[Rfam]
RNA sequence: UUCGCGGUGUAGUCCCAGAUGGUCUGGUCCUGGACGAGGACCUGCUCCCCGAAUUUCUCCCCGUCGGCGAGGACGCCGAGGCUGACCGGGUCGCCGUACGAGCCGACGCCGAUCUUGUCGACCUUGCCGUGCGCGAUCAGGCAGAGGUGGUCGGCGACCGAGCCGAACUCGACCAGGACCUGGCCCGGCUCGUACUCCUGCUGCUGGAACCGGUCGGCGAUGGAGCGCAGGAUCUCGUCGUCCUCGACGCCGGCGAAGACCGGGAUCUCGCGCAGUUCGGCCGGGACGACCUGGACGGCCGAGCCGGUGUUGGUGAACGUGAGCCGGCCGUCGCCGAGGCGGUACGUCAUCCGCCGGUUCACCCGGUAGGUGCCGCCGGACACCUGGACCCAGGGCAGCGAGCGCAGCAGCCACCGGGAGCUGAUCUCCUGCAUCUGCGGAACGGAUUUGGUGGUGUGCGUCAGGUUCCGGGCGGCGGCCGUGCUCAGGCUCUGCUUGUGCUUCUU
Numbered sequence: 001u002u003c004g005c006g007g008u009g010u011a012g013u014c015c016c017a018g019a020u021g022g023u024c025u026g027g028u029c030c031u032g033g034a035c036g037a038g039g040a041c042c043u044g045c046u047c048c049c050c051g052a053a054u055u056u057c058u059c060c061c062c063g064u065c066g067g068c069g070a071g072g073a074c075g076c077c078g079a080g081g082c083u084g085a086c087c088g089g090g091u092c093g094c095c096g097u098a099c100g101a102g103c104c105g106a107c108g109c110c111g112a113u114c115u116u117g118u119c120g121a122c123c124u125u126g127c128c129g130u131g132c133g134c135g136a137u138c139a140g141g142c143a144g145a146g147g148u149g150g151u152c153g154g155c156g157a158c159c160g161a162g163c164c165g166a167a168c169u170c171g172a173c174c175a176g177g178a179c180c181u182g183g184c185c186c187g188g189c190u191c192g193u194a195c196u197c198c199u200g201c202u203g204c205u206g207g208a209a210c211c212g213g214u215c216g217g218c219g220a221u222g223g224a225g226c227g228c229a230g231g232a233u234c235u236c237g238u239c240g241u242c243c244u245c246g247a248c249g250c251c252g253g254c255g256a257a258g259a260c261c262g263g264g265a266u267c268u269c270g271c272g273c274a275g276u277u278c279g280g281c282c283g284g285g286a287c288g289a290c291c292u293g294g295a296c297g298g299c300c301g302a303g304c305c306g307g308u309g310u311u312g313g314u315g316a317a318c319g320u321g322a323g324c325c326g327g328c329c330g331u332c333g334c335c336g337a338g339g340c341g342g343u344a345c346g347u348c349a350u351c352c353g354c355c356g357g358u359u360c361a362c363c364c365g366g367u368a369g370g371u372g373c374c375g376c377c378g379g380a381c382a383c384c385u386g387g388a389c390c391c392a393g394g395g396c397a398g399c400g401a402g403c404g405c406a407g408c409a410g411c412c413a414c415c416g417g418g419a420g421c422u423g424a425u426c427u428c429c430u431g432c433a434u435c436u437g438c439g440g441a442a443c444g445g446a447u448u449u450g451g452u453g454g455u456g457u458g459c460g461u462c463a464g465g466u467u468c469c470g471g472g473c474g475g476c477g478g479c480c481g482u483g484c485u486c487a488g489g490c491u492c493u494g495c496u497u498g499u500g501c502u503u504c505u506u
Stems, first nucleotide, its partner, number of pairs: 006390003010386003018328001021325002023322002025319002028316002035313001037311002040308003047303001049301001051299001054230002057227001059225001061223004065111004075103001077102001080099001083096002086093001119219001122217002127212001129210002132206002134203002139199003143196002150191001154189001158188003162184002165174001231296001233294002237290006250283001252281001254279004261270002329342001332339001351379003355375003360372004391431005397425001399423002403418001405416001407415001437476002440473001443470004447465006477505002480500003486494003